[Rfam]
RNA sequence: GUGGGCGGAAGCUCAUUGUAGAGGUCACAUGCUGAGUGCUCGUCACUCCACCAAUCACCUCGGGGAAGGUCUGAGACAAGAGCCAAUAGUUACCCUAGCAGGGUAUCACCUGAUUCGGGUGAGCGAGUGAACAGCAAACAUGGGCCACUGUGAGCGGCCAUAGCAGGAGAAGCUGAACGGUGCAGUUUCUCAGCACCGCCGGUGGAUGCGACGUUCACUGGCUUGGAAUCGCUCGCGGCUGGCAGAUGAGUACGAUGUAUGAGGUGGAGCAUAGCUCCAGAACCCAAUUCAGACUACUCUCCCCCCAC
Numbered sequence: 001g002u003g004g005g006c007g008g009a010a011g012c013u014c015a016u017u018g019u020a021g022a023g024g025u026c027a028c029a030u031g032c033u034g035a036g037u038g039c040u041c042g043u044c045a046c047u048c049c050a051c052c053a054a055u056c057a058c059c060u061c062g063g064g065g066a067a068g069g070u071c072u073g074a075g076a077c078a079a080g081a082g083c084c085a086a087u088a089g090u091u092a093c094c095c096u097a098g099c100a101g102g103g104u105a106u107c108a109c110c111u112g113a114u115u116c117g118g119g120u121g122a123g124c125g126a127g128u129g130a131a132c133a134g135c136a137a138a139c140a141u142g143g144g145c146c147a148c149u150g151u152g153a154g155c156g157g158c159c160a161u162a163g164c165a166g167g168a169g170a171a172g173c174u175g176a177a178c179g180g181u182g183c184a185g186u187u188u189c190u191c192a193g194c195a196c197c198g199c200c201g202g203u204g205g206a207u208g209c210g211a212c213g214u215u216c217a218c219u220g221g222c223u224u225g226g227a228a229u230c231g232c233u234c235g236c237g238g239c240u241g242g243c244a245g246a247u248g249a250g251u252a253c254g255a256u257g258u259a260u261g262a263g264g265u266g267g268a269g270c271a272u273a274g275c276u277c278c279a280g281a282a283c284c285c286a287a288u289u290c291a292g293a294c295u296a297c298u299c300u301c302c303c304c305c306c307a308c
Stems, first nucleotide, its partner, number of pairs: 001308004007302003012263005021061004034048005071292005081240004091105005106122006123236007144222003265279006
Annotation: Rfam assigns this 308-nucleotide sequence from Sparus aurata to the family "Nuclear RNase P". Pairs were carried over by alignment from the consensus structure, which is taken from published work.